[Rfam]
This 52-nucleotide RNA from Delphinapterus leucas belongs to the Rfam family "mir-1302 microRNA precursor family".
RNA sequence: UUUUUAGUAUAAGCAUGUGCCAUGCAACAUUUGGCAUAUGCUUACAUUAAAA
Numbered sequence: 001u002u003u004u005u006a007g008u009a010u011a012a013g014c015a016u017g018u019g020c021c022a023u024g025c026a027a028c029a030u031u032u033g034g035c036a037u038a039u040g041c042u043u044a045c046a047u048u049a050a051a052a
Stems, first nucleotide, its partner, number of pairs: 006048003010044003014040003018036004022031001

It scores 67 bits against the family's covariance model.
The family has 24 seed sequences and 16,160 matches in Rfam 15.1.
The base pairs follow the family's consensus structure, which was predicted with WAR.
Gene Ontology terms of the family: RISC complex and miRNA-mediated post-transcriptional gene silencing.